A member of the RNA family "MIR6217 microRNA precursor family" from Miscanthus lutarioriparius, 221 nucleotides long. The family has 2 seed sequences and 2,266 matches in Rfam 15.1. The source organism's lineage runs through Eukaryota, Embryophyta, Andropogoneae, Saccharinae and Miscanthus. The match comes from Rfam's covariance-model search (142 bits). Pairs were carried over by alignment from the consensus structure, which was predicted with RNAalifold.

RNA sequence: UUGCCAUAGAAUAACUUAUUUUGUGGCCAAAUUACGAUAAUUACCAUACUAAUUUAUAAGAUUACAGUAACUCCUUACUAAGUGAUUUACUAUAAUAUUAUCGUAAAUAUCACCAUGAGUUAUAGUAACACGAGUAUCGUAAAUGCAUAUUUAUGUUAUCGUAAAUCGGUACAAACAUUAUCGUAAAUCAAGGUGGCAUAGAAUAAGUUAUUCUAUGGCCA
Numbered sequence: 001u002u003g004c005c006a007u008a009g010a011a012u013a014a015c016u017u018a019u020u021u022u023g024u025g026g027c028c029a030a031a032u033u034a035c036g037a038u039a040a041u042u043a044c045c046a047u048a049c050u051a052a053u054u055u056a057u058a059a060g061a062u063u064a065c066a067g068u069a070a071c072u073c074c075u076u077a078c079u080a081a082g083u084g085a086u087u088u089a090c091u092a093u094a095a096u097a098u099u100a101u102c103g104u105a106a107a108u109a110u111c112a113c114c115a116u117g118a119g120u121u122a123u124a125g126u127a128a129c130a131c132g133a134g135u136a137u138c139g140u141a142a143a144u145g146c147a148u149a150u151u152u153a154u155g156u157u158a159u160c161g162u163a164a165a166u167c168g169g170u171a172c173a174a175a176c177a178u179u180a181u182c183g184u185a186a187a188u189c190a191a192g193g194u195g196g197c198a199u200a201g202a203a204u205a206a207g208u209u210a211u212u213c214u215a216u217g218g219c220c221a
Stems, first nucleotide, its partner, number of pairs: 001221001003219022026197004032186010047171004052166006060160003064156003067152001069150001075142004082137003086133002088127009098117001103111001